[Rfam]
RNA sequence: GAUUUAAGAGAAUAGCCUAGCUAUCCCUCUCUCUCGUUCUCUUGCAGAACUUUGUUUUUAACGAACUUAAAUAAUAGCCCUGCUGGUUUGCGUGCUGCGAUACCUUUCUGCUGCGUCAUAGGCGCCGGACUGGAAAGCGCAUGUACACCACUGGGUAUAAUUAAAACUGAAUAAUAUUUUUCAGUUAGAGCAUCGUGUCUCAAGUGCUUCACGGUCACAAUAUACCGUUUCGUCGGGUGCGUGGCAAUUCGGUGCACAUCAUGUCUUUCGUGGCUGGUGUGGCUCCUCAAGGUGCGAGGG
Numbered sequence: 001g002a003u004u005u006a007a008g009a010g011a012a013u014a015g016c017c018u019a020g021c022u023a024u025c026c027c028u029c030u031c032u033c034u035c036g037u038u039c040u041c042u043u044g045c046a047g048a049a050c051u052u053u054g055u056u057u058u059u060a061a062c063g064a065a066c067u068u069a070a071a072u073a074a075u076a077g078c079c080c081u082g083c084u085g086g087u088u089u090g091c092g093u094g095c096u097g098c099g100a101u102a103c104c105u106u107u108c109u110g111c112u113g114c115g116u117c118a119u120a121g122g123c124g125c126c127g128g129a130c131u132g133g134a135a136a137g138c139g140c141a142u143g144u145a146c147a148c149c150a151c152u153g154g155g156u157a158u159a160a161u162u163a164a165a166a167c168u169g170a171a172u173a174a175u176a177u178u179u180u181u182c183a184g185u186u187a188g189a190g191c192a193u194c195g196u197g198u199c200u201c202a203a204g205u206g207c208u209u210c211a212c213g214g215u216c217a218c219a220a221u222a223u224a225c226c227g228u229u230u231c232g233u234c235g236g237g238u239g240c241g242u243g244g245c246a247a248u249u250c251g252g253u254g255c256a257c258a259u260c261a262u263g264u265c266u267u268u269c270g271u272g273g274c275u276g277g278u279g280u281g282g283c284u285c286c287u288c289a290a291g292g293u294g295c296g297a298g299g300g
Stems, first nucleotide, its partner, number of pairs: 007030004012024005036050005089145005097138002103133002107129004195207002220238002225236003255281007263274003
RNA: Betacoronavirus 5'UTR